[Rfam]
RNA: c-di-GMP-I-GGC riboswitch aptamer
RNA sequence: AGCUGCAAAGGCAAACCUCUUGAAAGAGAGGGACGCAAAGCCACCGGCCUGACUGACACUCACGUGUUAAAGGUAGCGGGGUUGCACACA
Dot-bracket structure: ...(......((...((((((....))))))..[))..((((.((((((......................))).])))))))..)....